[Rfam]
RNA sequence: UUCACCACAACACACCAUGGAUCUGUGUCCAGAUUUCCCGUCCACGGAGCAAUCUGUGUUUCGGUUGAGAGCUGGACAGUUCGACGACUAUGGAGCCAUGCAAUUCCCACGUGUAUGGCACACUACGGUUUCCUGUCGACAGAUCUCAGAUUAAAGUGCCGCGCCGGGUGUGGCCUGGGUCUUGAGCUCCCUCUGGUGAGCUCGGCUCAGGUCCUGGUUGCGGUCGGCGUCAUAUUCCUGAUCCCUUUGCCGAUUGGCCGUUGGCUAGUGAGGCCAGGGAAUAACCAUGACCAGCCAACAUAU
Numbered sequence: 001u002u003c004a005c006c007a008c009a010a011c012a013c014a015c016c017a018u019g020g021a022u023c024u025g026u027g028u029c030c031a032g033a034u035u036u037c038c039c040g041u042c043c044a045c046g047g048a049g050c051a052a053u054c055u056g057u058g059u060u061u062c063g064g065u066u067g068a069g070a071g072c073u074g075g076a077c078a079g080u081u082c083g084a085c086g087a088c089u090a091u092g093g094a095g096c097c098a099u100g101c102a103a104u105u106c107c108c109a110c111g112u113g114u115a116u117g118g119c120a121c122a123c124u125a126c127g128g129u130u131u132c133c134u135g136u137c138g139a140c141a142g143a144u145c146u147c148a149g150a151u152u153a154a155a156g157u158g159c160c161g162c163g164c165c166g167g168g169u170g171u172g173g174c175c176u177g178g179g180u181c182u183u184g185a186g187c188u189c190c191c192u193c194u195g196g197u198g199a200g201c202u203c204g205g206c207u208c209a210g211g212u213c214c215u216g217g218u219u220g221c222g223g224u225c226g227g228c229g230u231c232a233u234a235u236u237c238c239u240g241a242u243c244c245c246u247u248u249g250c251c252g253a254u255u256g257g258c259c260g261u262u263g264g265c266u267a268g269u270g271a272g273g274c275c276a277g278g279g280a281a282u283a284a285c286c287a288u289g290a291c292c293a294g295c296c297a298a299c300a301u302a303u
Stems, first nucleotide, its partner, number of pairs: 019146008027077006034070004038064003043058006085138004092124002095119003157222003163218006178207004184203006190196002226296003229291005242280005249274003256266004
A member of the RNA family "A. fumigatus sRNA Afu_309" from Penicillium cinerascens, 303 nucleotides long. Lineage of the source: Eukaryota > Ascomycota > saccharomyceta > Eurotiomycetidae > Penicillium. The family's RNA type in Rfam is small RNA.